[Rfam]
RNA sequence: CGAAGAUUUAUAGAAGUUGCUGGACACUGCUCAAGAUUGAUUUUUAAACUUCUUGUGCGUGUGACAGCGGCUAUUGUAAAUUCUUCAUUGCAUCUGG
Numbered sequence: 001c002g003a004a005g006a007u008u009u010a011u012a013g014a015a016g017u018u019g020c021u022g023g024a025c026a027c028u029g030c031u032c033a034a035g036a037u038u039g040a041u042u043u044u045u046a047a048a049c050u051u052c053u054u055g056u057g058c059g060u061g062u063g064a065c066a067g068c069g070g071c072u073a074u075u076g077u078a079a080a081u082u083c084u085u086c087a088u089u090g091c092a093u094c095u096g097g
Stems, first nucleotide, its partner, number of pairs: 005083002007080006015072008025061002028059003032055002035052002
The family of this 97-nucleotide RNA from Diaphorina citri is "mir-210 microRNA precursor family". Its family is annotated with RISC complex and miRNA-mediated post-transcriptional gene silencing in the Gene Ontology.